[Rfam]
RNA sequence: CUGAAGCACGAUUUCUGCGUCCCCCUGACCAAAACCUCCCACAUUAGGAUUGCUGCUAACAUAUAAGAAUUUUUGAAGACAGAAAUACCCAAUAUCUUGUUCUAGCAAGAUAUUGGGUAUUUCUGUCUU
Numbered sequence: 001c002u003g004a005a006g007c008a009c010g011a012u013u014u015c016u017g018c019g020u021c022c023c024c025c026u027g028a029c030c031a032a033a034a035c036c037u038c039c040c041a042c043a044u045u046a047g048g049a050u051u052g053c054u055g056c057u058a059a060c061a062u063a064u065a066a067g068a069a070u071u072u073u074u075g076a077a078g079a080c081a082g083a084a085a086u087a088c089c090c091a092a093u094a095u096c097u098u099g100u101u102c103u104a105g106c107a108a109g110a111u112a113u114u115g116g117g118u119a120u121u122u123c124u125g126u127c128u129u
Stems, first nucleotide, its partner, number of pairs: 008044001076129013090115003094111005
Plastid-psbA-1 3UTR RNA: a 129-nucleotide RNA from Triticum urartu. It scores 60 bits against the family's covariance model. A reference for the family is Richter et al. (2023), "Retrograde signaling in plants: A critical review focusing on the GUN pathway and beyond", Plant Commun.